[Rfam]
RNA: Bacterial RNase P class A
RNA sequence: CCAGCUGGCCGGGCAGCCGCGCAUGUCAUACGCCGAAAGGCGGCAUGUGAGGAAAGUCCGGGCUCCAUGGAAACACGGUGCCGGAUAACGUCCGGCGGGGGUGACCCCAGGGAAAGUGCCACAGAAAGGAAACCGCCCCGUCUUUCGUUGCGCCGCAUACGGUUCGCGUGGGACGCAAGGAAUGACGGGGUAAGGGUGAAAGGGUGGGGUAAGAGCCCACCGCGCAACUGGUAACAGGGGCGGCAUGGCAAACCCCACCGGGAGCAAAACCGAAUAGGGACGGCGUGCCGGGCGAAAGCCCGGCGAUCAGUUUCCGGGUCAGUCGUCCGGGUGGGUUGCAGGAGGCGGGUGGCGACAUCCGUCCAAGAUGAAUGGCUGCCGCGCUGGAUGAAGAUCCAGCCAUACAGAACCCGGCUUACAGGCCAGCUGGCAAU
Numbered sequence: 001c002c003a004g005c006u007g008g009c010c011g012g013g014c015a016g017c018c019g020c021g022c023a024u025g026u027c028a029u030a031c032g033c034c035g036a037a038a039g040g041c042g043g044c045a046u047g048u049g050a051g052g053a054a055a056g057u058c059c060g061g062g063c064u065c066c067a068u069g070g071a072a073a074c075a076c077g078g079u080g081c082c083g084g085a086u087a088a089c090g091u092c093c094g095g096c097g098g099g100g101g102u103g104a105c106c107c108c109a110g111g112g113a114a115a116g117u118g119c120c121a122c123a124g125a126a127a128g129g130a131a132a133c134c135g136c137c138c139c140g141u142c143u144u145u146c147g148u149u150g151c152g153c154c155g156c157a158u159a160c161g162g163u164u165c166g167c168g169u170g171g172g173a174c175g176c177a178a179g180g181a182a183u184g185a186c187g188g189g190g191u192a193a194g195g196g197u198g199a200a201a202g203g204g205u206g207g208g209g210u211a212a213g214a215g216c217c218c219a220c221c222g223c224g225c226a227a228c229u230g231g232u233a234a235c236a237g238g239g240g241c242g243g244c245a246u247g248g249c250a251a252a253c254c255c256c257a258c259c260g261g262g263a264g265c266a267a268a269a270c271c272g273a274a275u276a277g278g279g280a281c282g283g284c285g286u287g288c289c290g291g292g293c294g295a296a297a298g299c300c301c302g303g304c305g306a307u308c309a310g311u312u313u314c315c316g317g318g319u320c321a322g323u324c325g326u327c328c329g330g331g332u333g334g335g336u337u338g339c340a341g342g343a344g345g346c347g348g349g350u351g352g353c354g355a356c357a358u359c360c361g362u363c364c365a366a367g368a369u370g371a372a373u374g375g376c377u378g379c380c381g382c383g384c385u386g387g388a389u390g391a392a393g394a395u396c397c398a399g400c401c402a403u404a405c406a407g408a409a410c411c412c413g414g415c416u417u418a419c420a421g422g423c424c425a426g427c428u429g430g431c432a433a434u
Stems, first nucleotide, its partner, number of pairs: 001430010011419001012380007020049008054417003058414005063264004076260005081095005096110001097108004111255002116253002118249003133195002135191008203221006222244001223242003228237003268337004278328006307321001309319001311317001344363008